[Rfam]
RNA sequence: CCUUCCGAGGAGCGCUGCGACCCGCCGUACGGCUGGCCAGGCUCGGAAUCAACACCGCGCUCACGUUAC
Numbered sequence: 001c002c003u004u005c006c007g008a009g010g011a012g013c014g015c016u017g018c019g020a021c022c023c024g025c026c027g028u029a030c031g032g033c034u035g036g037c038c039a040g041g042c043u044c045g046g047a048a049u050c051a052a053c054a055c056c057g058c059g060c061u062c063a064c065g066u067u068a069c
Base pairs, nucleotide, nucleotide: 003048004047005046006045007044008043021036022035024033025032026031
This 69-nucleotide RNA from Massilia sp. Root351 belongs to the Rfam family "SAH (S-adenosyl-L-homocysteine) riboswitch aptamer". It scores 52 bits against the family's covariance model.